[Rfam]
RNA sequence: AAACCACACCCGACCACACACGCACGGCAGGAGCGGGGGACCCAGGUAAGUCGCCGAACCGAAGUCCGGAACGGCUAGGGGUGAAGUCGCACUCACCGUGCGGCCGGGCAGCUCCCGCCCGAACCCGACAGCUCACCUCGCAGGCGCCGGAGAGGAACU
Numbered sequence: 001a002a003a004c005c006a007c008a009c010c011c012g013a014c015c016a017c018a019c020a021c022g023c024a025c026g027g028c029a030g031g032a033g034c035g036g037g038g039g040a041c042c043c044a045g046g047u048a049a050g051u052c053g054c055c056g057a058a059c060c061g062a063a064g065u066c067c068g069g070a071a072c073g074g075c076u077a078g079g080g081g082u083g084a085a086g087u088c089g090c091a092c093u094c095a096c097c098g099u100g101c102g103g104c105c106g107g108g109c110a111g112c113u114c115c116c117g118c119c120c121g122a123a124c125c126c127g128a129c130a131g132c133u134c135a136c137c138u139c140g141c142a143g144g145c146g147c148c149g150g151a152g153a154g155g156a157a158c159u
Stems, first nucleotide, its partner, number of pairs: 004031002033141006043078001079126003087103004106120004